[Rfam]
RNA sequence: CGAGCGGGACGGUCGGUCGCUUGUCGACUACGAGAGCGACAAGAGGAAAGUCCGGGCAACAUAGAGCACCAUAGUUCUUAACGGGAACCUAUCGGUGACGGUAGAGUAGCGUGACAGAAAAUAACCGCCGCCGCCUGUUACGGAUUGCAAUAUAUCCGCAGCAUGCGGCGGUAAGGGUGAAAAGGCGAGGCAAGAGCUCACCGGGACCGGCAGUGAUGUCGGUCGCCGCACGCCUUAUGGGUUGCAAGGUCAAGUAUACCGGCAUUUAAGGGUUGCUCGCCCAUUGCCGGGGGGUAGACUGCUCAAGCCGCGUGGCGACAUGCGGAUUAGAUAAAUGACCGACCAUGCAGGCGGCGAGAACAUCGAGUCAACUGCAUGACAUAACCCGGCUUAUAGCCCCGCUCGGCUU
Numbered sequence: 001c002g003a004g005c006g007g008g009a010c011g012g013u014c015g016g017u018c019g020c021u022u023g024u025c026g027a028c029u030a031c032g033a034g035a036g037c038g039a040c041a042a043g044a045g046g047a048a049a050g051u052c053c054g055g056g057c058a059a060c061a062u063a064g065a066g067c068a069c070c071a072u073a074g075u076u077c078u079u080a081a082c083g084g085g086a087a088c089c090u091a092u093c094g095g096u097g098a099c100g101g102u103a104g105a106g107u108a109g110c111g112u113g114a115c116a117g118a119a120a121a122u123a124a125c126c127g128c129c130g131c132c133g134c135c136u137g138u139u140a141c142g143g144a145u146u147g148c149a150a151u152a153u154a155u156c157c158g159c160a161g162c163a164u165g166c167g168g169c170g171g172u173a174a175g176g177g178u179g180a181a182a183a184g185g186c187g188a189g190g191c192a193a194g195a196g197c198u199c200a201c202c203g204g205g206a207c208c209g210g211c212a213g214u215g216a217u218g219u220c221g222g223u224c225g226c227c228g229c230a231c232g233c234c235u236u237a238u239g240g241g242u243u244g245c246a247a248g249g250u251c252a253a254g255u256a257u258a259c260c261g262g263c264a265u266u267u268a269a270g271g272g273u274u275g276c277u278c279g280c281c282c283a284u285u286g287c288c289g290g291g292g293g294g295u296a297g298a299c300u301g302c303u304c305a306a307g308c309c310g311c312g313u314g315g316c317g318a319c320a321u322g323c324g325g326a327u328u329a330g331a332u333a334a335a336u337g338a339c340c341g342a343c344c345a346u347g348c349a350g351g352c353g354g355c356g357a358g359a360a361c362a363u364c365g366a367g368u369c370a371a372c373u374g375c376a377u378g379a380c381a382u383a384a385c386c387c388g389g390c391u392u393a394u395a396g397c398c399c400c401g402c403u404c405g406g407c408u409u
Stems, first nucleotide, its partner, number of pairs: 001405008010396001011394001012343007020043007048392003052389005057244004064278004069240005074088005089104001091102004105235002109233005125176002127172008184202002187199003204226001205224008248300004259290005270282004308325007

Shown here is a 409-nucleotide RNA sequence from Muribaculaceae bacterium Isolate-102, a member of the family "Bacterial RNase P class A". Rfam links the family to the GO terms ribonuclease P activity, dimeric ribonuclease P complex and tRNA processing.